RNA sequence: AUACCUUUCUAGGACUUUUGGCUAAGAUCAAGUUUAGUAUAUGUUCUUAUCAAUUUUAUAUCUGAUACGUGGGCCAAUGGUCCACACGAUAGGUCCACCACAGUAUCUUGCUACUGGGACUCUCGAGCGUCGCCCUAGCGUUGCACUAUUGCUCGGUCCUGGUGCAUCCCAC
Numbered sequence: 001a002u003a004c005c006u007u008u009c010u011a012g013g014a015c016u017u018u019u020g021g022c023u024a025a026g027a028u029c030a031a032g033u034u035u036a037g038u039a040u041a042u043g044u045u046c047u048u049a050u051c052a053a054u055u056u057u058a059u060a061u062c063u064g065a066u067a068c069g070u071g072g073g074c075c076a077a078u079g080g081u082c083c084a085c086a087c088g089a090u091a092g093g094u095c096c097a098c099c100a101c102a103g104u105a106u107c108u109u110g111c112u113a114c115u116g117g118g119a120c121u122c123u124c125g126a127g128c129g130u131c132g133c134c135c136u137a138g139c140g141u142u143g144c145a146c147u148a149u150u151g152c153u154c155g156g157u158c159c160u161g162g163u164g165c166a167u168c169c170c171a172c
Base pairs, nucleotide, nucleotide: 008027009026010025012023013022015020048067049066050065051064052063069085070084071083072082073081074080075079088124089123091121093120094119095118096117103114104113105112127165128164129163130162131161132160134156135155137153138152139151

A member of the RNA family "U2 spliceosomal RNA" from Hibiscus syriacus, 172 nucleotides long.
On this family, see Zwieb, Nucleic Acids Res 1997: "The uRNA database".
It scores 99 bits against the family's covariance model.
Pairs were carried over by alignment from the consensus structure, which is taken from published work.